A member of the RNA family "c-di-GMP-I-GGC riboswitch aptamer" from Paenibacillus piri, 91 nucleotides long.
The family's consensus secondary structure is taken from published work.
It scores 68 bits against the family's covariance model.

Nucleotides: 091
Base pairs, nucleotide, nucleotide: 001091003088004087011036012035016031017030018029019028020027021026034077040083041082042081044080045079046078047075048074049073
Number, partner (000 for none) and nucleotide at each position: 001091a002000u003088c004087g005000u006000u007000c008000a009000a010000g011036g012035c013000a014000a015000a016031c017030u018029u019028g020027c021026c022000g023000a024000a025000a026021g027020g028019c029018a030017a031016g032000g033000a034077c035012g036011c037000a038000a039000a040083g041082c042081u043000u044080a045079g046078g047075g048074u049073c050000u051000a052000a053000g054000g055000u056000c057000c058000a059000u060000g061000a062000a063000c064000a065000u066000g067000g068000a069000u070000g071000a072000u073049g074048a075047c076000a077034g078046c079045c080044u081042g082041g083040c084000c085000g086000c087004c088003g089000g090000u091001u